[Rfam]
RNA sequence: AAAAUUCUUCGGGGCAGGGUGAAAUUCCCUACCGGCUGUGAUUGCGAAUGCAUAAGUCAGCGAGCCAAUGGCAUGAUAUGGUGUGAAUCCAUAACCGACAGUAAAGUCUGGAUGAGAGAAGACAGGA
Numbered sequence: 001a002a003a004a005u006u007c008u009u010c011g012g013g014g015c016a017g018g019g020u021g022a023a024a025u026u027c028c029c030u031a032c033c034g035g036c037u038g039u040g041a042u043u044g045c046g047a048a049u050g051c052a053u054a055a056g057u058c059a060g061c062g063a064g065c066c067a068a069u070g071g072c073a074u075g076a077u078a079u080g081g082u083g084u085g086a087a088u089c090c091a092u093a094a095c096c097g098a099c100a101g102u103a104a105a106g107u108c109u110g111g112a113u114g115a116g117a118g119a120a121g122a123c124a125g126g127a
Base pairs, nucleotide, nucleotide: 006122007121008120009119010118017029018028019027031107032106033097034096035061036060037059038058056095057094066071077093078092079091080090081089099110100109101108
Overview:
FMN riboswitch aptamer (RFN element): a 127-nucleotide sequence from Eubacterium ventriosum. The match comes from Rfam's covariance-model search (106 bits).